JUMPstart RNA: a 39-nucleotide RNA sequence from Pectobacterium atrosepticum. It scores 43 bits against the family's covariance model. Lineage of the source: Bacteria > Pseudomonadati > Pseudomonadota > Pectobacteriaceae > Pectobacterium atrosepticum. The base pairs follow the family's consensus structure, which is taken from published work. By type it is a cis-regulatory element. The family has 128 seed sequences and 288 matches in Rfam 15.1.

[Rfam]
RNA sequence: CAGUUAACUGGUAGCUGUCGAGCCAGGGGCGGUAGCAUU
Numbered sequence: 001c002a003g004u005u006a007a008c009u010g011g012u013a014g015c016u017g018u019c020g021a022g023c024c025a026g027g028g029g030c031g032g033u034a035g036c037a038u039u
Stems, first nucleotide, its partner, number of pairs: 008026005